About this RNA:
Shown here is a 99-nucleotide RNA sequence from Phenylobacterium soli, a member of the family "Glycine riboswitch aptamer". Taxonomically the source falls in Phenylobacterium (Bacteria, Pseudomonadati, Alphaproteobacteria, Caulobacterales). About the family: This family represents the bacterial glycine riboswitch.
RNA sequence: CCAACUCUCGCGGGAGAGAUCGGGGGGCUUGCUGAGUCCCUCGGAGCCGAAGGCGCAACCGCCCCGGAAACGCUCAGGCAAAAGGACCGCGCGGGCUGA
Numbered sequence: 001c002c003a004a005c006u007c008u009c010g011c012g013g014g015a016g017a018g019a020u021c022g023g024g025g026g027g028c029u030u031g032c033u034g035a036g037u038c039c040c041u042c043g044g045a046g047c048c049g050a051a052g053g054c055g056c057a058a059c060c061g062c063c064c065c066g067g068a069a070a071c072g073c074u075c076a077g078g079c080a081a082a083a084g085g086a087c088c089g090c091g092c093g094g095g096c097u098g099a
Stems, first nucleotide, its partner, number of pairs: 006094002009091005020044010046079003049075002053073003059067002